[Rfam]
RNA sequence: GUUGGUUAUGGAGAGAUGGUACCAACAACUGUACCAGGUAAAAUUAUUGGUGGAAUAUGUGCCAUGUUUGGAAUACUUAUAGUUGCGCUUCCGAUAUCUGUUAUUGGUAGUAAC
Numbered sequence: 001g002u003u004g005g006u007u008a009u010g011g012a013g014a015g016a017u018g019g020u021a022c023c024a025a026c027a028a029c030u031g032u033a034c035c036a037g038g039u040a041a042a043a044u045u046a047u048u049g050g051u052g053g054a055a056u057a058u059g060u061g062c063c064a065u066g067u068u069u070g071g072a073a074u075a076c077u078u079a080u081a082g083u084u085g086c087g088c089u090u091c092c093g094a095u096a097u098c099u100g101u102u103a104u105u106g107g108u109a110g111u112a113a114c
Base pairs, nucleotide, nucleotide: 001114002113004111009106010105011104013102014101016099018097037077038076039075040074049063050062051061
Dot-bracket structure: ((.(....(((.((.(.(..................((((........(((.........)))..........))))...................).).)).)))....).))

This 114-nucleotide RNA sequence from Hydra vulgaris belongs to the Rfam family "Potassium channel RNA editing signal". From the family's description: This family represents a group of sequences related to the human potassium channel Kv1.1 hairpin element which directs the efficient modification of an adenosine to inosine by an adenosine deaminase acting on RNA (ADAR). The ADAR modification causes an isoleucine/valine recoding event which lies in the ion-conducting pore of the potassium channel. The family's RNA type in Rfam is cis-regulatory element. Gene Ontology term of the family: adenosine to inosine editing. NCBI's taxonomy places the organism under Eukaryota, Opisthokonta, Cnidaria, Anthoathecata, Hydra.